[Rfam]
RNA: Small nucleolar RNA SNORA73 family
RNA sequence: CAAAUGUGGAUACCCCCAGAAGUCACUCUCCUGGGGGUUCUGUCCAGGCAGCGUAGGGGAGCACAGGGCUCUGCCCUGUGUACAGCCCUUUCCACAGUGUUGGAGAGAAAGCCAGGUCUUGAGCCUGUGCCAGCAUAUUUCUACAGCCUCUCAGAGUCCUGUGGAUGAUGACUGAGAAGACAAACCAUGCAGGAAACAUCA
Numbered sequence: 001c002a003a004a005u006g007u008g009g010a011u012a013c014c015c016c017c018a019g020a021a022g023u024c025a026c027u028c029u030c031c032u033g034g035g036g037g038u039u040c041u042g043u044c045c046a047g048g049c050a051g052c053g054u055a056g057g058g059g060a061g062c063a064c065a066g067g068g069c070u071c072u073g074c075c076c077u078g079u080g081u082a083c084a085g086c087c088c089u090u091u092c093c094a095c096a097g098u099g100u101u102g103g104a105g106a107g108a109a110a111g112c113c114a115g116g117u118c119u120u121g122a123g124c125c126u127g128u129g130c131c132a133g134c135a136u137a138u139u140u141c142u143a144c145a146g147c148c149u150c151u152c153a154g155a156g157u158c159c160u161g162u163g164g165a166u167g168a169u170g171a172c173u174g175a176g177a178a179g180a181c182a183a184a185c186c187a188u189g190c191a192g193g194a195a196a197c198a199u200c201a
Base pairs, nucleotide, nucleotide: 001103003101004100005099006098007097008045009044010043011042012041014037015036016035018029019028020027048095051092057088058087059086061083063081064080065079066077067076130193131192133190134189135188136187147179149177150176151175152174156166157165158164159163